[Rfam]
RNA sequence: GAUGUCAAGUAGAAGCCAUCCGCUUCUCACCUUACGACAGGCGUUAGUAAGGUAUCUUCUGGUCCUGAGCUUAGUGUUUGCUUUGUGAUUGUUUAGAAGACGGGUGGUGAUAGACCCGUCUUUUUUGUUGGCU
Numbered sequence: 001g002a003u004g005u006c007a008a009g010u011a012g013a014a015g016c017c018a019u020c021c022g023c024u025u026c027u028c029a030c031c032u033u034a035c036g037a038c039a040g041g042c043g044u045u046a047g048u049a050a051g052g053u054a055u056c057u058u059c060u061g062g063u064c065c066u067g068a069g070c071u072u073a074g075u076g077u078u079u080g081c082u083u084u085g086u087g088a089u090u091g092u093u094u095a096g097a098a099g100a101c102g103g104g105u106g107g108u109g110a111u112a113g114a115c116c117c118g119u120c121u122u123u124u125u126u127g128u129u130g131g132c133u
Base pairs, nucleotide, nucleotide: 011027012026013025014024015023016022029053030052031051034048035047037044038043099120100119101118102117103116104115105114
Dot-bracket structure: ..........((((((.....)))))).(((..((.((....))..))..))).............................................(((((((........))))))).............
The family of this 133-nucleotide RNA sequence from Desulfosporosinus orientis is "Ribosomal protein L20 leader". Rfam links the family to the GO term regulation of gene expression. The literature on the family includes a 1994 paper in Prog Nucleic Acid Res Mol Biol by Zengel and Lindahl, "Diverse mechanisms for regulating ribosomal protein synthesis in Escherichia coli". A search with the family's covariance model found it, with a score of 60 bits. NCBI's taxonomy places the organism under Bacteria, Bacillati, Clostridia, Desulfitobacteriaceae, Desulfosporosinus orientis.